[Rfam]
Shown here is a 141-nucleotide RNA sequence from Spirilliplanes yamanashiensis, a member of the family "c-di-AMP riboswitch aptamer (ydaO/yuaA leader)". The literature on the family includes a 2004 paper in Proc Natl Acad Sci U S A by Barrick et al., "New RNA motifs suggest an expanded scope for riboswitches in bacterial genetic control". Rfam describes the family as follows. This family represents a conserved RNA structure found upstream of the ydaO and yuaA genes in Bacillus subtilis and related genes in other bacteria. Lineage of the source: Bacteria > Actinomycetes > Micromonosporales > Micromonosporaceae > Spirilliplanes.
RNA sequence: GGCCCGGUCACGCGUGAUCGGGCCAGGAGCAUGAACCGGGGACCCACCCGCGACACCGGGGUGAAUCCGCGGAACCACGCGGUAGGACGCUCUCCCGUCCGAACCCGUCAGCUAACCCGGUAGGCGGCUCCACGGGAGAAA
Numbered sequence: 001g002g003c004c005c006g007g008u009c010a011c012g013c014g015u016g017a018u019c020g021g022g023c024c025a026g027g028a029g030c031a032u033g034a035a036c037c038g039g040g041g042a043c044c045c046a047c048c049c050g051c052g053a054c055a056c057c058g059g060g061g062u063g064a065a066u067c068c069g070c071g072g073a074a075c076c077a078c079g080c081g082g083u084a085g086g087a088c089g090c091u092c093u094c095c096c097g098u099c100c101g102a103a104c105c106c107g108u109c110a111g112c113u114a115a116c117c118c119g120g121u122a123g124g125c126g127g128c129u130c131c132a133c134g135g136g137a138g139a140a141a
Stems, first nucleotide, its partner, number of pairs: 002125003008034003035121006045058001059106003067082004085100004